[Rfam]
A member of the RNA family "ffh sRNA" from Ketogulonicigenium vulgare, 52 nucleotides long.

RNA sequence: UUUUUGCGGGAUCGCCGUCCGUCAGCGCGUUGCGCCCACGGGCGCCUUUCCG
Dot-bracket structure: ...............(((((((..((((...))))..)))))))........
Numbered sequence: 001u002u003u004u005u006g007c008g009g010g011a012u013c014g015c016c017g018u019c020c021g022u023c024a025g026c027g028c029g030u031u032g033c034g035c036c037c038a039c040g041g042g043c044g045c046c047u048u049u050c051c052g
Stems, first nucleotide, its partner, number of pairs: 016044007025035004

Pairs were carried over by alignment from the consensus structure, which is taken from published work.
It scores 61 bits against the family's covariance model.
Rfam classes the family as a small RNA.
The organism belongs to Ketogulonicigenium vulgare, within Bacteria.